[Rfam]
RNA sequence: CGUGUGAGCCCGCCCUGUGCCCGUCCCACUUCUGCUGCUGCUUAGCUCAGGAGGGGUCCCGCACUGGGAGGGGCCCUCAC
Dot-bracket structure: .(((.(.((((.(((.((((..(.(((.((((((.............))))))))).)..)))).)))..)))).).)))
Overview:
The family of this 80-nucleotide RNA sequence from Pongo pygmaeus is "mir-1914 microRNA precursor family". The organism belongs to Pongo, within Eukaryota. The family's consensus secondary structure was predicted with RNAalifold. It is one of the family's seed sequences.